[Rfam]
RNA sequence: UGACCAGGGGGAUUCCUGGCAGAGUGAUUCUUUGGAUCUACGACUGGAUCACAUUGCCAGGGAUUUCCAAUGGCUG
Numbered sequence: 001u002g003a004c005c006a007g008g009g010g011g012a013u014u015c016c017u018g019g020c021a022g023a024g025u026g027a028u029u030c031u032u033u034g035g036a037u038c039u040a041c042g043a044c045u046g047g048a049u050c051a052c053a054u055u056g057c058c059a060g061g062g063a064u065u066u067c068c069a070a071u072g073g074c075u076g
Stems, first nucleotide, its partner, number of pairs: 001076002004073003010068002012064011024052007
RNA: mir-23 microRNA precursor family